RNA sequence: UAAUUCAAGUAGAAAUUGUCGUUUCUCACCUUGCAGCAUAGCUAGUUAGGUUAUCUUUGAAUAUUAGUCUAGUACUAUAUACGAGAGACGGCUUGUGUCGUCUCUUUUUAUUUUAA
Numbered sequence: 001u002a003a004u005u006c007a008a009g010u011a012g013a014a015a016u017u018g019u020c021g022u023u024u025c026u027c028a029c030c031u032u033g034c035a036g037c038a039u040a041g042c043u044a045g046u047u048a049g050g051u052u053a054u055c056u057u058u059g060a061a062u063a064u065u066a067g068u069c070u071a072g073u074a075c076u077a078u079a080u081a082c083g084a085g086a087g088a089c090g091g092c093u094u095g096u097g098u099c100g101u102c103u104c105u106u107u108u109u110a111u112u113u114u115a116a
Base pairs, nucleotide, nucleotide: 011026012025013024014023015022016021028051029050030049033046034045036042037041086103087102088101089100090099091098092097